[Rfam]
This 83-nucleotide RNA from Merluccius polli belongs to the Rfam family "mir-219 microRNA precursor family". Gene Ontology terms of the family: RISC complex and miRNA-mediated post-transcriptional gene silencing. The family has 92 seed sequences and 1,318 matches in Rfam 15.1. The organism belongs to Merluccius, within Eukaryota.

RNA sequence: CUCGCGGCUGAUUGUCCAAACGCAAUUCUUGUGACAUCAUCACAAAUUACAGCCGAGAAUUGUGCCUGGACAUCUGUUGCUGC
Numbered sequence: 001c002u003c004g005c006g007g008c009u010g011a012u013u014g015u016c017c018a019a020a021c022g023c024a025a026u027u028c029u030u031g032u033g034a035c036a037u038c039a040u041c042a043c044a045a046a047u048u049a050c051a052g053c054c055g056a057g058a059a060u061u062g063u064g065c066c067u068g069g070a071c072a073u074c075u076g077u078u079g080c081u082g083c
Stems, first nucleotide, its partner, number of pairs: 002082001004080004010074003014071005021064011